[Rfam]
RNA sequence: ACGCGGAAAGGAGGUGGUCCAAACAGUGGUUGAUCAUGCUUGGGCUAGCGAGGUGACUGUCCGCUAGGACUCGCCACUUCCGGACCAUGUCCGGGCGUCCGGCGACGUCCCGGCGAAUCCAAGACAGCACCGGAACCCCGGGCCGCCGGAGGGCGGGUUCCCCGCCCGUUGGUCCAUCCGGCCCACCUCAUCGCGAGGUCGGAGCAGGCCCGGGGUUCUUCUUCG
Numbered sequence: 001a002c003g004c005g006g007a008a009a010g011g012a013g014g015u016g017g018u019c020c021a022a023a024c025a026g027u028g029g030u031u032g033a034u035c036a037u038g039c040u041u042g043g044g045c046u047a048g049c050g051a052g053g054u055g056a057c058u059g060u061c062c063g064c065u066a067g068g069a070c071u072c073g074c075c076a077c078u079u080c081c082g083g084a085c086c087a088u089g090u091c092c093g094g095g096c097g098u099c100c101g102g103c104g105a106c107g108u109c110c111c112g113g114c115g116a117a118u119c120c121a122a123g124a125c126a127g128c129a130c131c132g133g134a135a136c137c138c139c140g141g142g143c144c145g146c147c148g149g150a151g152g153g154c155g156g157g158u159u160c161c162c163c164g165c166c167c168g169u170u171g172g173u174c175c176a177u178c179c180g181g182c183c184c185a186c187c188u189c190a191u192c193g194c195g196a197g198g199u200c201g202g203a204g205c206a207g208g209c210c211c212g213g214g215g216u217u218c219u220u221c222u223u224c225g
Stems, first nucleotide, its partner, number of pairs: 013061006062115004067110002070107001072104003132219013149199001

The record is a 225-nucleotide RNA from Thermostaphylospora chromogena, which matches "Actinobacteria sRNA Ms_IGR-5" in Rfam. The pairing is the family consensus, mapped onto this sequence. Rfam classes the family as a small RNA.